[Rfam]
RNA sequence: AGCGAGACUAGAGUCACAUCCUGACGUUGCUCGUUGUCUUGGUGUGCUAUAGUACUCGCAGAAUAACCUCUCUGCUUAUUCAUUGGCUGCUGCUUUCCAUUGCCCAGCCAAUCACCAGCUCUGAAACAUGC
Number, nucleotide and partner (000 for none) at each position: 001a000002g059003c058004g057005a056006g055007a053008c052009u051010a000011g000012a048013g047014u000015c046016a045017c044018a043019u042020c041021c000022u000023g038024a037025c036026g035027u000028u000029g000030c000031u000032c000033g000034u000035u026036g025037u024038c023039u000040u000041g020042g019043u018044g017045u016046g015047c013048u012049a000050u000051a009052g008053u007054a000055c006056u005057c004058g003059c002060a000061g000062a000063a000064u000065a000066a000067c000068c000069u000070c123071u000072c000073u000074g119075c118076u117077u000078a000079u000080u000081c000082a112083u111084u110085g109086g108087c000088u106089g105090c000091u000092g000093c000094u000095u000096u000097c000098c000099a000100u000101u000102g000103c000104c000105c089106a088107g000108c086109c085110a084111a083112u082113c000114a000115c000116c000117a076118g075119c074120u000121c000122u000123g070124a000125a000126a000127c000128a000129u000130g000131c000
Source information: Shown here is a 131-nucleotide RNA sequence from Danio rerio, a member of the family "Small nucleolar RNA SNORA3/SNORA45 family". The members of this family belong to the H/ACA class of snoRNAs which are thought to guide the sites of modification of uridines to pseudouridines. This family includes mouse snoMBI-28 and human homologues ACA3 (SNORA3) and ACA3-2 (SNORA45). Both ACA3 and ACA3-2 share the same host gene. MBI-28, ACA3 and ACA3-2 are all predicted to guide the pseudouridylation of residues in 28S rRNA. By type it is an H/ACA-box small nucleolar RNA. The source organism's lineage runs through Eukaryota, Metazoa, Cyprinoidei, Danionidae and Danio. The match comes from Rfam's covariance-model search (89 bits). The family's consensus secondary structure was predicted with RNAalifold.